A member of the RNA family "Small nucleolar RNA SNORA5" from Vombatus ursinus, 138 nucleotides long.
The base pairs follow the family's consensus structure, which was predicted with RNAfold.
Rfam describes the family as follows. ACA5 is a member of the H/ACA class of snoRNA that guide the sites of modification of uridines to pseudouridines.
It is annotated as an H/ACA-box small nucleolar RNA.
Clan: SNORA5 clan.
[Rfam]
RNA sequence: UGCAGCUGUGUCAAAUUCAGCACCUGCCCCCUUUCAUGGCAGGGGCUGGUCCAAACAGCUGCCACAGUAAUACUGCAGCUCAUGGGCCCCAAGUCCCUCUCCCUGGGGCUUGGGGAUAAAGUCUUGCUGCAGACACUG
Number, nucleotide and partner (000 for none) at each position: 001u000002g062003c061004a060005g059006c000007u000008g000009u000010g000011u000012c000013a000014a000015a000016u000017u000018c048019a047020g046021c045022a000023c043024c042025u041026g040027c039028c038029c000030c000031c000032u000033u000034u000035c000036a000037u000038g028039g027040c026041a025042g024043g023044g000045g021046c020047u019048g018049g000050u000051c000052c000053a000054a000055a000056c000057a000058g000059c005060u004061g003062c002063c000064a000065c000066a000067g000068u000069a000070a000071u000072a000073c000074u000075g130076c129077a128078g127079c126080u000081c000082a000083u000084g000085g000086g000087c115088c114089c113090c000091a111092a110093g000094u000095c000096c000097c000098u000099c000100u000101c000102c000103c000104u000105g000106g000107g000108g000109c000110u092111u091112g000113g089114g088115g087116a000117u000118a000119a000120a000121g000122u000123c000124u000125u000126g079127c078128u077129g076130c075131a000132g000133a000134c000135a000136c000137u000138g000